[Rfam]
Rfam assigns this 64-nucleotide sequence from Lawsonia inermis to the family "Plastid-psbA-4 3UTR RNA". Clan: Plastid-psbA 3UTR RNA clan. The family's RNA type in Rfam is cis-regulatory element. NCBI's taxonomy places the organism under Eukaryota, Viridiplantae, Euphyllophyta, eudicotyledons, Lawsonia. The literature on the family includes a 2023 paper in Plant Commun by Richter et al., "Retrograde signaling in plants: A critical review focusing on the GUN pathway and beyond".
RNA sequence: GAACGUAAAGGAGCAAUAAUCAACACUCUUGAUAGAACAAGAAUUUGGUUAUUGCUCCUUUACU
Numbered sequence: 001g002a003a004c005g006u007a008a009a010g011g012a013g014c015a016a017u018a019a020u021c022a023a024c025a026c027u028c029u030u031g032a033u034a035g036a037a038c039a040a041g042a043a044u045u046u047g048g049u050u051a052u053u054g055c056u057c058c059u060u061u062a063c064u
Stems, first nucleotide, its partner, number of pairs: 007061012022046002027042005